c-di-GMP-I riboswitch aptamer: an 85-nucleotide sequence from Peribacillus asahii. Taxonomically the source falls in Peribacillus (Bacteria, Bacillati, Bacillota, Bacillaceae). The match comes from Rfam's covariance-model search (74 bits). Pairs were carried over by alignment from the consensus structure, which is taken from published work.
RNA sequence: UGCCUAUUGAGGCAAAUUUUACGAAAGUAAGAGACGCAAAGCUACGGACCUAAAGCAUUUUUGCCAUGGUGGCCGAGUUGCCAGG
Numbered sequence: 001u002g003c004c005u006a007u008u009g010a011g012g013c014a015a016a017u018u019u020u021a022c023g024a025a026a027g028u029a030a031g032a033g034a035c036g037c038a039a040a041g042c043u044a045c046g047g048a049c050c051u052a053a054a055g056c057a058u059u060u061u062u063g064c065c066a067u068g069g070u071g072g073c074c075g076a077g078u079u080g081c082c083a084g085g
Stems, first nucleotide, its partner, number of pairs: 012037002017032006040079004045075003048070003055064003